[Rfam]
RNA: MIR8024 microRNA precursor family
Organism: Solanum tuberosum
RNA sequence: UUGGAGGAUUUGAAGACUUCAACUUGCAGACUUGACAAAUUUGAGACUUUAACUUCCAGACUUGACAAUUUUGAAGACUUCAAGU
Numbered sequence: 001u002u003g004g005a006g007g008a009u010u011u012g013a014a015g016a017c018u019u020c021a022a023c024u025u026g027c028a029g030a031c032u033u034g035a036c037a038a039a040u041u042u043g044a045g046a047c048u049u050u051a052a053c054u055u056c057c058a059g060a061c062u063u064g065a066c067a068a069u070u071u072u073g074a075a076g077a078c079u080u081c082a083a084g085u
Stems, first nucleotide, its partner, number of pairs: 001083006009075006019065003025058002028055001032052004
Dot-bracket structure: ((((((..((((((....(((...((.(...((((.............))))..).))....)))....))))))..))))))..